[Rfam]
RNA sequence: UGACCACUAUUAAUUUAGGAAUGCCCAGACGGACAGGCGGGUCAGUUGCCGG
Numbered sequence: 001u002g003a004c005c006a007c008u009a010u011u012a013a014u015u016u017a018g019g020a021a022u023g024c025c026c027a028g029a030c031g032g033a034c035a036g037g038c039g040g041g042u043c044a045g046u047u048g049c050c051g052g
Stems, first nucleotide, its partner, number of pairs: 001044005007018003
RNA: Streptococcus sRNA SpF59 (ldcC RNA)